[Rfam]
RNA sequence: GCCGCGGGCCGUGACUGGCGCGCUGGGAUGGGAACGACCAUCGGGGAGCGGCCCGGGAAGAACACGUGCCGUGCGCCUGGGCCGACCGA
Numbered sequence: 001g002c003c004g005c006g007g008g009c010c011g012u013g014a015c016u017g018g019c020g021c022g023c024u025g026g027g028a029u030g031g032g033a034a035c036g037a038c039c040a041u042c043g044g045g046g047a048g049c050g051g052c053c054c055g056g057g058a059a060g061a062a063c064a065c066g067u068g069c070c071g072u073g074c075g076c077c078u079g080g081g082c083c084g085a086c087c088g089a
Base pairs, nucleotide, nucleotide: 003057005055006054007053008052009051010050011049012048015045016044017077018076019075020074021073028041029040030039031038068082069081070080